[Rfam]
RNA sequence: GGGUGGGGUAGAGGCGCGGGGAUCCAAGAGUAUUAUCUGGGAAAUCGGGGAGAUUGAUGAUCAGGUAAGAAAGGGGACACCGCCGAAGCCGGUGCCUUCCUCAGGGCAUUGAGCUGGGCCGUCAGUGAAUAACUGCCGGACUGUCACCGUAUGUACCCUGACAUGCGGUGGAGAACUAUCUCACAA
Numbered sequence: 001g002g003g004u005g006g007g008g009u010a011g012a013g014g015c016g017c018g019g020g021g022a023u024c025c026a027a028g029a030g031u032a033u034u035a036u037c038u039g040g041g042a043a044a045u046c047g048g049g050g051a052g053a054u055u056g057a058u059g060a061u062c063a064g065g066u067a068a069g070a071a072a073g074g075g076g077a078c079a080c081c082g083c084c085g086a087a088g089c090c091g092g093u094g095c096c097u098u099c100c101u102c103a104g105g106g107c108a109u110u111g112a113g114c115u116g117g118g119c120c121g122u123c124a125g126u127g128a129a130u131a132a133c134u135g136c137c138g139g140a141c142u143g144u145c146a147c148c149g150u151a152u153g154u155a156c157c158c159u160g161a162c163a164u165g166c167g168g169u170g171g172a173g174a175a176c177u178a179u180c181u182c183a184c185a186a
Stems, first nucleotide, its partner, number of pairs: 006181006016083004021078001023077003033068008087115003090111008116142002119139003123135004144171010
This 186-nucleotide RNA from Dethiobacter alkaliphilus belongs to the Rfam family "Lysine riboswitch aptamer". A search with the family's covariance model found it, with a score of 119 bits. The organism belongs to Dethiobacter alkaliphilus, within Bacteria. Its family is annotated with lysine biosynthetic process in the Gene Ontology.